Background: Rfam assigns this 84-nucleotide RNA sequence from Mytilus galloprovincialis to the family "rpsL sRNA".

RNA sequence: UUGGGAUUGAUUUUGGGAGUUUUGGUCCUAACAUUAGGGACCAAAAAGGUCCAAAAUUAAACUGUUUGAUUUCAUAAAAAAAAA
Numbered sequence: 001u002u003g004g005g006a007u008u009g010a011u012u013u014u015g016g017g018a019g020u021u022u023u024g025g026u027c028c029u030a031a032c033a034u035u036a037g038g039g040a041c042c043a044a045a046a047a048g049g050u051c052c053a054a055a056a057u058u059a060a061a062c063u064g065u066u067u068g069a070u071u072u073c074a075u076a077a078a079a080a081a082a083a084a
Stems, first nucleotide, its partner, number of pairs: 011079005016073006023043006047067002
A search with the family's covariance model found it, with a score of 37 bits.
The organism belongs to Mytilus, within Eukaryota.
The base pairs follow the family's consensus structure, which is taken from published work.